Overview: Shown here is a 177-nucleotide sequence from Grimontia hollisae, a member of the family "Lysine riboswitch aptamer". It scores 81 bits against the family's covariance model. The base pairs follow the family's consensus structure, which is taken from published work. Riboswitches are metabolite binding domains within certain messenger RNAs that serve as precision sensors for their corresponding targets.
RNA sequence: AGAGACAGAAGAGGCGCGUCUACCAGGCAGUCGGAUUGCGGAGCCCCAACUCCAAUGCCAUCUGAUCAGGGGGUAAGACGCCGAGGCGAGACCAGACCUUGGGGGGCUGGCUUGUCGGUCUGGGAGGUUGAAUCCUCCGGAUUGUCAUCUCAAUCGAGAUGGAGCGCUUCUGGAGAA
Number, nucleotide and partner (000 for none) at each position: 001a000002g000003a000004g000005a000006c172007a171008g170009a169010a168011g167012a000013g000014g000015c000016g081017c080018g079019u078020c077021u076022a000023c000024c073025a000026g000027g000028c000029a000030g066031u065032c064033g063034g062035a061036u060037u000038g000039c000040g000041g000042a000043g000044c000045c000046c000047c000048a000049a000050c000051u000052c000053c000054a000055a000056u000057g000058c000059c000060a036061u035062c034063u033064g032065a031066u030067c000068a000069g000070g000071g000072g000073g024074u000075a000076a021077g020078a019079c018080g017081c016082c000083g000084a000085g116086g115087c114088g113089a112090g111091a000092c110093c109094a108095g107096a000097c105098c000099u000100u000101g000102g000103g000104g000105g097106g000107c095108u094109g093110g092111c090112u089113u088114g087115u086116c085117g143118g142119u141120c140121u139122g138123g137124g000125a136126g135127g134128u000129u000130g000131a000132a000133u000134c127135c126136u125137c123138c122139g121140g120141a119142u118143u117144g000145u162146c161147a160148u159149c158150u157151c156152a000153a000154u000155c000156g151157a150158g149159a148160u147161g146162g145163a000164g000165c000166g000167c011168u010169u009170c008171u007172g006173g000174a000175g000176a000177a000